[Rfam]
RNA: U7 small nuclear RNA
RNA sequence: AAUUGUUACAGCUCUUUUAGAACUUAUCUAGAACGUUUGCUGGUUUUCACCGGAAAACAUAC
Numbered sequence: 001a002a003u004u005g006u007u008a009c010a011g012c013u014c015u016u017u018u019a020g021a022a023c024u025u026a027u028c029u030a031g032a033a034c035g036u037u038u039g040c041u042g043g044u045u046u047u048c049a050c051c052g053g054a055a056a057a058c059a060u061a062c
Base pairs, nucleotide, nucleotide: 035058036057037056038055040053041052042051043050044049
Dot-bracket structure: ..................................((((.(((((....))))).))))....